The record is a 64-nucleotide RNA from Zemynaea arenosa, which matches "Betaproteobacteria toxic small RNA" in Rfam.
[Rfam]
RNA sequence: UGUCUCCUCUAUUCUCCUCCGCGAGAUAGAUUCAGCCCGUCGGCCCGUCCGCGGGCUUUUUUUU
Numbered sequence: 001u002g003u004c005u006c007c008u009c010u011a012u013u014c015u016c017c018u019c020c021g022c023g024a025g026a027u028a029g030a031u032u033c034a035g036c037c038c039g040u041c042g043g044c045c046c047g048u049c050c051g052c053g054g055g056c057u058u059u060u061u062u063u064u
Stems, first nucleotide, its partner, number of pairs: 008030005013024002034057007
The organism belongs to Zemynaea, within Bacteria.